[Rfam]
RNA: msiK RNA
Nucleotides: 058
Stems, first nucleotide, its partner, number of pairs: 010049006026043006
Number, partner (000 for none) and nucleotide at each position: 001000g002000u003000g004000a005000c006000c007000c008000g009000g010049c011048u012047u013046c014045u015044a016000c017000u018000c019000g020000g021000a022000u023000c024000g025000u026043c027042c028041g029040g030039c031038a032000c033000g034000u035000u036000c037000c038031u039030g040029c041028c042027g043026g044015u045014g046013g047012a048011a049010g050000g051000a052000a053000g054000c055000a056000u057000c058000a